This 46-nucleotide RNA sequence from Syrrhaptes paradoxus belongs to the Rfam family "Histone 3' UTR stem-loop".
The family's RNA type in Rfam is cis-regulatory element.
Taxonomically the source falls in Syrrhaptes (Eukaryota, Dipnotetrapodomorpha, Amniota, Archelosauria).
The match comes from Rfam's covariance-model search (44 bits).
RNA sequence: ACAAAGGCUCUUUUCAGAGCCACCCAUGAAAUCAUAAAAGAGCUGU
Numbered sequence: 001a002c003a004a005a006g007g008c009u010c011u012u013u014u015c016a017g018a019g020c021c022a023c024c025c026a027u028g029a030a031a032u033c034a035u036a037a038a039a040g041a042g043c044u045g046u
Base pairs, nucleotide, nucleotide: 006021007020008019009018010017011016